[Rfam]
RNA sequence: GUGCAUCCAGCAGGAAUUGAACCUACGAAUUUGCAUUAUGAGUUGGGCGAUUUAAACAUUAAGCCAUGGAUGC
Dot-bracket structure: ..((((((.(.(((.......))).)...........(((.(((.((.(.......).)).))))))))))))

The record is a 73-nucleotide RNA from Musa balbisiana, which matches "Plastid-ycf2 5UTR RNA" in Rfam. The match comes from Rfam's covariance-model search (80 bits). Taxonomically the source falls in Musa (Eukaryota, Streptophyta, Magnoliopsida, Musaceae).